The family of this 117-nucleotide RNA from Chimaeribacter arupi is "Ribosomal S15 leader". The source organism's lineage runs through Bacteria, Pseudomonadota, Enterobacterales, Yersiniaceae and Chimaeribacter. The E. coli Ribosomal S15 gene 5' UTR can form two alternative structures. A reference for the family is Benard et al. (1996), "Pseudoknot and translational control in the expression of the S15 ribosomal protein", Biochimie. The family's RNA type in Rfam is cis-regulatory leader. Rfam links the family to the GO term regulation of translation, ncRNA-mediated.

RNA sequence: UUGGGUUGCUGAAUUAGAGAUCGGCACCUGUUUUUUUUAUCUAUAAUCUGGAGUAUUACCAUGUCUCUAAGCGUUGAAGCUAAGGCACAGAUCGUAGCCGACUACGGUCGCGGUGCA
Dot-bracket structure: ......((((((........))))))....................(.(((((...........))))).)..............................................